[Rfam]
RNA: 6S / SsrS RNA
RNA sequence: UAAUUCCUGAAAUGUGCGACACUCUUACCUUUUUUGAACCUACAUUAUGACUCAUGGGAUUCCGAUAUUUUCAGGCGGAUGUCAGGCCUCCGUAGCAGUGGAAGGCAGAAACCUGAGUGAGGUUGCCCACCUAGCAAGGCUAGGCGUCAAUAAGUAAGAACCGGCAUUUUGGGGUUACU
Numbered sequence: 001u002a003a004u005u006c007c008u009g010a011a012a013u014g015u016g017c018g019a020c021a022c023u024c025u026u027a028c029c030u031u032u033u034u035u036g037a038a039c040c041u042a043c044a045u046u047a048u049g050a051c052u053c054a055u056g057g058g059a060u061u062c063c064g065a066u067a068u069u070u071u072c073a074g075g076c077g078g079a080u081g082u083c084a085g086g087c088c089u090c091c092g093u094a095g096c097a098g099u100g101g102a103a104g105g106c107a108g109a110a111a112c113c114u115g116a117g118u119g120a121g122g123u124u125g126c127c128c129a130c131c132u133a134g135c136a137a138g139g140c141u142a143g144g145c146g147u148c149a150a151u152a153a154g155u156a157a158g159a160a161c162c163g164g165c166a167u168u169u170u171g172g173g174g175u176u177a178c179u
Base pairs, nucleotide, nucleotide: 003176005174006173007172008171009170010169011168012167013166014165015164017163018162031153032152035149036148037147039144040143056128057127058126062122063121067118070117071116072115073114074113075112082105083104087101088100090098